RNA sequence: CUUGGUAUUCUUCCACAGCUUUCUUGAACUGCACCUAUUUGAAUAUUGUUGUUGAUGUUGCCGUGCAUGUACAUAUGACAUUGUAUUUUUGUUGCGGUUCAAUAAAGCUGUGGGAAGAUACAAACA
Numbered sequence: 001c002u003u004g005g006u007a008u009u010c011u012u013c014c015a016c017a018g019c020u021u022u023c024u025u026g027a028a029c030u031g032c033a034c035c036u037a038u039u040u041g042a043a044u045a046u047u048g049u050u051g052u053u054g055a056u057g058u059u060g061c062c063g064u065g066c067a068u069g070u071a072c073a074u075a076u077g078a079c080a081u082u083g084u085a086u087u088u089u090u091g092u093u094g095c096g097g098u099u100c101a102a103u104a105a106a107g108c109u110g111u112g113g114g115a116a117g118a119u120a121c122a123a124a125c126a
Base pairs, nucleotide, nucleotide: 003123005121006120007119013113014112015111017109018108019107020106021105022104024102025101026100027099029097030096031095032094033093
A member of the RNA family "MIR396 microRNA precursor family" from Populus trichocarpa, 126 nucleotides long. Rfam links the family to the GO terms RISC complex and miRNA-mediated post-transcriptional gene silencing. The source organism's lineage runs through Eukaryota, Tracheophyta, eudicotyledons, Salicaceae and Populus.